[Rfam]
RNA sequence: GGGGAUAUAGCUCAGCUGGGAGAGCGCUGCAAUCGCACUGCAGAGGCCAGGGGUUCGAAUCCCCUUAUCUCCA
Number, nucleotide and partner (000 for none) at each position: 001g072002g071003g070004g069005a068006u067007a066008u000009a000010g025011c024012u023013c022014a000015g000016c000017u000018g000019g000020g000021a000022g013023a012024g011025c010026g000027c043028u042029g041030c040031a039032a000033u000034c000035g000036c000037a000038c000039u031040g030041c029042a028043g027044a000045g000046g000047c000048c000049a065050g064051g063052g062053g061054u000055u000056c000057g000058a000059a000060u000061c053062c052063c051064c050065u049066u007067a006068u005069c004070u003071c002072c001073a000
This 73-nucleotide RNA from Armatimonadetes bacterium Uphvl-Ar2 belongs to the Rfam family "tRNA".
About the family: Transfer RNA (tRNA) molecules are approximately 80 nucleotides in length.
NCBI's taxonomy places the organism under Bacteria, Bacillati, Armatimonadota.
Rfam classes the family as a transfer RNA.